[Rfam]
RNA sequence: GUCAAUGACCCCACCCAAACUGCCUUGCAAUUUGGAUGGGGCUUGAAAUAAGAAGCUUUCAUGCAUCUGUUUCAAGCCUGAUUGACUAGCCUGAGUCUUAACUGACUCCGUGAUUUGAGAAUCAACCUUAAACAAGUUGAAAUGGGCACUCCAGGAUGUUCAGCUCUAGUCCUGGACUCUGCGGAUUUGUAUGAACCAGCACUGAGGUCAGGCGCAGUGUGCGGUCAACAAACCUCUUAUAACAUUGGCGAAGGCUGGUGCUU
Numbered sequence: 001g002u003c004a005a006u007g008a009c010c011c012c013a014c015c016c017a018a019a020c021u022g023c024c025u026u027g028c029a030a031u032u033u034g035g036a037u038g039g040g041g042c043u044u045g046a047a048a049u050a051a052g053a054a055g056c057u058u059u060c061a062u063g064c065a066u067c068u069g070u071u072u073c074a075a076g077c078c079u080g081a082u083u084g085a086c087u088a089g090c091c092u093g094a095g096u097c098u099u100a101a102c103u104g105a106c107u108c109c110g111u112g113a114u115u116u117g118a119g120a121a122u123c124a125a126c127c128u129u130a131a132a133c134a135a136g137u138u139g140a141a142a143u144g145g146g147c148a149c150u151c152c153a154g155g156a157u158g159u160u161c162a163g164c165u166c167u168a169g170u171c172c173u174g175g176a177c178u179c180u181g182c183g184g185a186u187u188u189g190u191a192u193g194a195a196c197c198a199g200c201a202c203u204g205a206g207g208u209c210a211g212g213c214g215c216a217g218u219g220u221g222c223g224g225u226c227a228a229c230a231a232a233c234c235u236c237u238u239a240u241a242a243c244a245u246u247g248g249c250g251a252a253g254g255c256u257g258g259u260g261c262u263u
Stems, first nucleotide, its partner, number of pairs: 001086006008079001010041002012038002015035005042076009089249003093245001094107004110243002113240002117236003146182002150176008158259001161258001163256001165254003184226004189222004197217001199215002202212001203210002